RNA sequence: AAAGGAGCAAUACCAAUCCUCUUGAGAAAACAAGAAAUUGGUUAUUGCUCCUUUACUU
Numbered sequence: 001a002a003a004g005g006a007g008c009a010a011u012a013c014c015a016a017u018c019c020u021c022u023u024g025a026g027a028a029a030a031c032a033a034g035a036a037a038u039u040g041g042u043u044a045u046u047g048c049u050c051c052u053u054u055a056c057u058u
Stems, first nucleotide, its partner, number of pairs: 001054012014041001020035005